[Rfam]
RNA sequence: CCCUCUGAAGUUUCUCUCAGGAUAGCUGGAACAAUAUCGCAGUUUUAUUAGGUAAAGCGAAUGAUUAGAGGAAUCGGAGGUCCUAGACCUUUGACCUAUUCUCAAACUUUAAAUUGGUAAGAGCUUGGUGUUUCUUAAUUGAACACUGAGGUAGAAUGCGUUGUUCCAAGUGGGCCGUUUUUGGUAAGCAGAACUGGCGAUGAGGGAUGAACCUAACGCUGAGCUAAGGUGCCAAAAUUCCCGCUCAUCAGAUACCAUAAAAGGUGUUGGUUCAUUUAGACAGCAGGACGGUGGCCCUGGAAGUCGGAAUCCGCUAAGGAGUGUGUAACAACUCACCUGCCGAAUGAACUAGCCCUGAAAAUGGAUGGCGCUGAAGCGGGAUACCGAUACUCAGCCAUCAAAGCAAAUGUGAGGCUUUGAUGAGUAAGAGGGCGUGAGCAUAGUGCAGAAGCCUUUGACGUGAGUCUAGGUGGAACUAUGUUUAGUGCAGAU
Numbered sequence: 001c002c003c004u005c006u007g008a009a010g011u012u013u014c015u016c017u018c019a020g021g022a023u024a025g026c027u028g029g030a031a032c033a034a035u036a037u038c039g040c041a042g043u044u045u046u047a048u049u050a051g052g053u054a055a056a057g058c059g060a061a062u063g064a065u066u067a068g069a070g071g072a073a074u075c076g077g078a079g080g081u082c083c084u085a086g087a088c089c090u091u092u093g094a095c096c097u098a099u100u101c102u103c104a105a106a107c108u109u110u111a112a113a114u115u116g117g118u119a120a121g122a123g124c125u126u127g128g129u130g131u132u133u134c135u136u137a138a139u140u141g142a143a144c145a146c147u148g149a150g151g152u153a154g155a156a157u158g159c160g161u162u163g164u165u166c167c168a169a170g171u172g173g174g175c176c177g178u179u180u181u182u183g184g185u186a187a188g189c190a191g192a193a194c195u196g197g198c199g200a201u202g203a204g205g206g207a208u209g210a211a212c213c214u215a216a217c218g219c220u221g222a223g224c225u226a227a228g229g230u231g232c233c234a235a236a237a238u239u240c241c242c243g244c245u246c247a248u249c250a251g252a253u254a255c256c257a258u259a260a261a262a263g264g265u266g267u268u269g270g271u272u273c274a275u276u277u278a279g280a281c282a283g284c285a286g287g288a289c290g291g292u293g294g295c296c297c298u299g300g301a302a303g304u305c306g307g308a309a310u311c312c313g314c315u316a317a318g319g320a321g322u323g324u325g326u327a328a329c330a331a332c333u334c335a336c337c338u339g340c341c342g343a344a345u346g347a348a349c350u351a352g353c354c355c356u357g358a359a360a361a362u363g364g365a366u367g368g369c370g371c372u373g374a375a376g377c378g379g380g381a382u383a384c385c386g387a388u389a390c391u392c393a394g395c396c397a398u399c400a401a402a403g404c405a406a407a408u409g410u411g412a413g414g415c416u417u418u419g420a421u422g423a424g425u426a427a428g429a430g431g432g433c434g435u436g437a438g439c440a441u442a443g444u445g446c447a448g449a450a451g452c453c454u455u456u457g458a459c460g461u462g463a464g465u466c467u468a469g470g471u472g473g474a475a476c477u478a479u480g481u482u483u484a485g486u487g488c489a490g491a492u
Stems, first nucleotide, its partner, number of pairs: 001432006011024001013022003027168007043122008055110001056108002062104003067099001069097003074094006081087001124150009174198004179193005203214003218395005228385003237382001239381001242378003262356003266353010283340005289313003295307002314318001319334001323332002396422009433487001435484010451471002457466003